[Rfam]
Small nucleolar RNA snoR100: a 109-nucleotide RNA sequence from Elaeis guineensis. It is annotated as an H/ACA-box small nucleolar RNA. The organism belongs to Elaeis, within Eukaryota.

Nucleotides: 109
Base pairs, nucleotide, nucleotide: 012025013024014023015022041093042092043091044090045089051082052081053080055076056075057074
Number, partner (000 for none) and nucleotide at each position: 001000g002000g003000a004000a005000g006000a007000a008000a009000g010000a011000a012025g013024c014023a015022u016000g017000g018000u019000a020000a021000g022015g023014u024013g025012c026000a027000c028000a029000a030000a031000g032000a033000u034000g035000a036000a037000a038000g039000a040000u041093g042092g043091g044090u045089c046000u047000a048000c049000a050000u051082g052081u053080u054000u055076g056075c057074u058000u059000a060000c061000u062000u063000u064000g065000a066000u067000g068000c069000u070000c071000u072000c073000a074057g075056g076055c077000a078000u079000u080053g081052a082051u083000c084000u085000a086000g087000c088000g089045g090044g091043c092042c093041u094000g095000g096000u097000u098000c099000a100000a101000c102000u103000c104000a105000c106000a107000u108000u109000c